Rfam assigns this 107-nucleotide sequence from Myroides marinus to the family "Bacteroidales small SRP".
The source organism's lineage runs through Bacteria, Pseudomonadati, Flavobacteriales, Flavobacteriaceae and Myroides.
Pairs were carried over by alignment from the consensus structure, which is taken from published work.
RNA sequence: UUUGCAGUGGCAAGUCCUACACGACCAGCUCCCUCUUAAUCCUCCAGGGUGGGAACGCAGCAAAGGUCUGAGGUUGUAGCGGUGCGAUGUAGGUAGCUUGCCAUUUU
Numbered sequence: 001u002u003u004g005c006a007g008u009g010g011c012a013a014g015u016c017c018u019a020c021a022c023g024a025c026c027a028g029c030u031c032c033c034u035c036u037u038a039a040u041c042c043u044c045c046a047g048g049g050u051g052g053g054a055a056c057g058c059a060g061c062a063a064a065g066g067u068c069u070g071a072g073g074u075u076g077u078a079g080c081g082g083u084g085c086g087a088u089g090u091a092g093g094u095a096g097c098u099u100g101c102c103a104u105u106u107u
Stems, first nucleotide, its partner, number of pairs: 008103008017092005022086002024083002